[Rfam]
RNA sequence: CUCUUAUCCAGAGCGGCGGAGGGACUGGCCCGAUGAAGCCCGGCAACCCCGGUGAGACGAACCGGAAGGUGCCAAUUCCUGUAGAGACUGAGCAUCAGUUUCUAAGAGAUAGGAG
Dot-bracket structure: ((((((((....(.(((...(((.[.[[)))......))))((((.((((((.........))))..))))))...(]].](((((((((.....)))))))))..)))))))))
Description:
Rfam assigns this 115-nucleotide RNA from Thermoactinomyces daqus to the family "SAM riboswitch aptamer (S box leader)". Taxonomically the source falls in Thermoactinomyces (Bacteria, Bacillota, Caryophanales, Thermoactinomycetaceae).